[Rfam]
RNA sequence: GAAAAUGUUUUCUAGGGUUCCGCAACAGCUUGUUGGUCUGGUCCGAGAGGAAACUCACAGUUUUUGCUGUGUCACGGAGGGAUAAAAGCCCGGGAGGU
Numbered sequence: 001g002a003a004a005a006u007g008u009u010u011u012c013u014a015g016g017g018u019u020c021c022g023c024a025a026c027a028g029c030u031u032g033u034u035g036g037u038c039u040g041g042u043c044c045g046a047g048a049g050g051a052a053a054c055u056c057a058c059a060g061u062u063u064u065u066g067c068u069g070u071g072u073c074a075c076g077g078a079g080g081g082a083u084a085a086a087a088g089c090c091c092g093g094g095a096g097g098u
Base pairs, nucleotide, nucleotide: 007054008053009052010051011050012049015044016043020041021040022038023035024034025033026032027031056071057070058069059068060067073093075096079091080090081089
Dot-bracket structure: ......((((((..((...((((((((...)))))..).)).))....)))))).(((((......))))).(.[...(((.......))).)..]..
Shown here is a 98-nucleotide RNA from Bacillus sp. Y1, a member of the family "Guanidine-I riboswitch aptamer". Pairs were carried over by alignment from the consensus structure. The match comes from Rfam's covariance-model search (85 bits). On this family, see Barrick et al., Proc Natl Acad Sci U S A 2004: "New RNA motifs suggest an expanded scope for riboswitches in bacterial genetic control". This family represents a conserved RNA structure found upstream of the ykkC and yxkD genes in Bacillus subtilis and related genes in other bacteria.